[Rfam]
Notes:
The family of this 145-nucleotide RNA from Pantherophis guttatus is "Phenylalanine leader peptide". NCBI's taxonomy places the organism under Eukaryota, Vertebrata, Euteleostomi, Squamata, Pantherophis. By type it is a cis-regulatory leader. The family has 71 seed sequences and 379 matches in Rfam 15.1. It scores 55 bits against the family's covariance model.
RNA sequence: AACUCUUUUUUUUUUUUUACUUUUUAAAAGCAUUUUUUUACAACCUAUUCGGGCAAAUAGGUUGUAAAAAAAUGCUUUUAAAAGGUAAAAAAAAAGGCUCUGAUGAUCACAGCUGUGGCGCGCAAUUGUCAGAGCCUUUUUUUUU
Numbered sequence: 001a002a003c004u005c006u007u008u009u010u011u012u013u014u015u016u017u018u019a020c021u022u023u024u025u026a027a028a029a030g031c032a033u034u035u036u037u038u039u040a041c042a043a044c045c046u047a048u049u050c051g052g053g054c055a056a057a058u059a060g061g062u063u064g065u066a067a068a069a070a071a072a073u074g075c076u077u078u079u080a081a082a083a084g085g086u087a088a089a090a091a092a093a094a095a096g097g098c099u100c101u102g103a104u105g106a107u108c109a110c111a112g113c114u115g116u117g118g119c120g121c122g123c124a125a126u127u128g129u130c131a132g133a134g135c136c137u138u139u140u141u142u143u144u145u
Base pairs, nucleotide, nucleotide: 016089017088018087019086021084022083023082024081025080026079027078028077029076030075031074032073033072034071036069037068038067039066044053045052056063057062093139094138095137096136097135098134099133100132101131102130103129104128105127106126107125